[Rfam]
RNA sequence: ACAUCAAGACUAAAGGAAGAAGAGAGAGAGUACAGCCUUAGCUCUGUCUAUCUACGAUCUUUUAUAUAUUUGAGUUUAAUCAAGGCUGUACCCUCUCUCUUCUUCUCUUAGCUUCUCGAUGC
Numbered sequence: 001a002c003a004u005c006a007a008g009a010c011u012a013a014a015g016g017a018a019g020a021a022g023a024g025a026g027a028g029a030g031u032a033c034a035g036c037c038u039u040a041g042c043u044c045u046g047u048c049u050a051u052c053u054a055c056g057a058u059c060u061u062u063u064a065u066a067u068a069u070u071u072g073a074g075u076u077u078a079a080u081c082a083a084g085g086c087u088g089u090a091c092c093c094u095c096u097c098u099c100u101u102c103u104u105c106u107c108u109u110a111g112c113u114u115c116u117c118g119a120u121g122c
Base pairs, nucleotide, nucleotide: 005118012109013108015106016105017104018103019102020101021100022099023098024097025096026095027094028093030091031090032089033088034087035086036085037084038083
MIR529 microRNA precursor family: a 122-nucleotide RNA sequence from Leersia perrieri. For this family Rfam cites "A diverse set of microRNAs and microRNA-like small RNAs in developing rice grains" (Zhu et al., Genome Res, 2008). The match comes from Rfam's covariance-model search (98 bits). NCBI's taxonomy places the organism under Eukaryota, Liliopsida, commelinids, Oryzinae, Leersia. Pairs were carried over by alignment from the consensus structure, which was predicted with WAR.